This 78-nucleotide RNA from Bison bison belongs to the Rfam family "Small nucleolar RNA SNORD113/SNORD114 family". NCBI's taxonomy places the organism under Eukaryota, Chordata, Teleostomi, Boreoeutheria, Bison bison. By type it is a C/D-box small nucleolar RNA. The family is grouped with related families in Rfam's "SNORD74 clan". The family's consensus secondary structure is taken from published work. The imprinted human domain at 14q32 contains two clusters of tandemly repeated small nucleolar RNAs named 14q(I) and 14q(II) snoRNAs.
RNA sequence: UGGACCAAUGAUGAAGACUAAUGGAGUAUGAGUCACGUAUGCGAUGAGUACUCAUGUGUCUGAAACUCUGAGGUCCAG
Numbered sequence: 001u002g003g004a005c006c007a008a009u010g011a012u013g014a015a016g017a018c019u020a021a022u023g024g025a026g027u028a029u030g031a032g033u034c035a036c037g038u039a040u041g042c043g044a045u046g047a048g049u050a051c052u053c054a055u056g057u058g059u060c061u062g063a064a065a066c067u068c069u070g071a072g073g074u075c076c077a078g
Stems, first nucleotide, its partner, number of pairs: 002076005